[Rfam]
The record is a 110-nucleotide sequence from Hibiscus trionum, which matches "MIR1520 microRNA precursor family" in Rfam. It scores 54 bits against the family's covariance model.

RNA sequence: CUCCAAUUGGGUGUGACACGUGUCACCACCUGAUUGGAGGUGGAAAAUUAAAUAAAUUAAUUAAAUAAAAAUAAUUAAAGACUUCCAAUAAGGUGGUGACACGUGUCACU
Number, nucleotide and partner (000 for none) at each position: 001c000002u000003c000004c000005a000006a000007u000008u000009g000010g000011g000012u000013g000014u000015g107016a106017c105018a104019c000020g102021u101022g000023u000024c098025a097026c096027c000028a094029c093030c092031u091032g000033a089034u088035u087036g000037g000038a000039g000040g000041u000042g000043g000044a000045a000046a000047a000048u000049u000050a000051a000052a000053u000054a000055a000056a000057u000058u000059a000060a000061u000062u000063a000064a000065a000066u000067a000068a000069a000070a000071a000072u000073a000074a000075u000076u000077a000078a000079a000080g000081a000082c000083u000084u000085c000086c000087a035088a034089u033090a000091a031092g030093g029094u028095g000096g026097u025098g024099a000100c000101a021102c020103g000104u018105g017106u016107c015108a000109c000110u000